[Rfam]
RNA sequence: GUGUCUUCAUGGAAACAGCCAAGUUUGAGCAUUAGAAGACCUUCCAGUCUACCUAAUGCAUGACCACUGUAGUUUUGAGA
Number, nucleotide and partner (000 for none) at each position: 001g000002u000003g000004u000005c000006u000007u000008c000009a000010u000011g000012g000013a000014a000015a000016c000017a000018g000019c000020c000021a000022a000023g000024u000025u000026u000027g000028a000029g059030c058031a057032u056033u055034a000035g000036a000037a050038g049039a048040c047041c000042u000043u000044c000045c000046a000047g040048u039049c038050u037051a000052c000053c000054u000055a033056a032057u031058g030059c029060a000061u000062g000063a000064c000065c000066a000067c000068u000069g000070u000071a000072g000073u000074u000075u000076u000077g000078a000079g000080a000

Rfam assigns this 80-nucleotide RNA sequence from Felis catus to the family "Small nucleolar RNA U2-19".